This 70-nucleotide RNA sequence from Crocodylus porosus belongs to the Rfam family "Mammalian CPEB3 ribozyme". Lineage of the source: Eukaryota > Metazoa > Craniata > Vertebrata > Crocodylus. The match comes from Rfam's covariance-model search (35 bits).
RNA sequence: UAACAAGAUCAAGGCUGUAGCAGAAGUGGUCAUGGCUGUGUCAGAUUCCAGCAAAUCUGCGAAUUCUGUU
Numbered sequence: 001u002a003a004c005a006a007g008a009u010c011a012a013g014g015c016u017g018u019a020g021c022a023g024a025a026g027u028g029g030u031c032a033u034g035g036c037u038g039u040g041u042c043a044g045a046u047u048c049c050a051g052c053a054a055a056u057c058u059g060c061g062a063a064u065u066c067u068g069u070u
Stems, first nucleotide, its partner, number of pairs: 013037004019070007026033002042059006
Dot-bracket structure: ............[[[[..(((((((((....))]]]]....((((((......))))))....)))))))